[Rfam]
RNA sequence: GUCCUACAUCAGCCGAAGCCCAAAAACUGGGCGCGGGGGAACCAGUUAUCUGGGGUGAAAUCAGACUGCAAGUGCUAUUCACAGUUUUGUGUUUUUGAAACAACACCUUGAAGAAACACUUUGCAGUUCAGUCGGGUAAUCCCUUUUAUCCGAACCCGUCAGCUAACCUCGCAGGCUUUACAAGGGAGGUACU
Numbered sequence: 001g002u003c004c005u006a007c008a009u010c011a012g013c014c015g016a017a018g019c020c021c022a023a024a025a026a027c028u029g030g031g032c033g034c035g036g037g038g039g040a041a042c043c044a045g046u047u048a049u050c051u052g053g054g055g056u057g058a059a060a061u062c063a064g065a066c067u068g069c070a071a072g073u074g075c076u077a078u079u080c081a082c083a084g085u086u087u088u089g090u091g092u093u094u095u096u097g098a099a100a101c102a103a104c105a106c107c108u109u110g111a112a113g114a115a116a117c118a119c120u121u122u123g124c125a126g127u128u129c130a131g132u133c134g135g136g137u138a139a140u141c142c143c144u145u146u147u148a149u150c151c152g153a154a155c156c157c158g159u160c161a162g163c164u165a166a167c168c169u170c171g172c173a174g175g176c177u178u179u180a181c182a183a184g185g186g187a188g189g190u191a192c193u
Stems, first nucleotide, its partner, number of pairs: 011177004018032003033172006043052002053157003062131001064129002134151004
RNA: c-di-AMP riboswitch aptamer (ydaO/yuaA leader)
Organism: Effusibacillus dendaii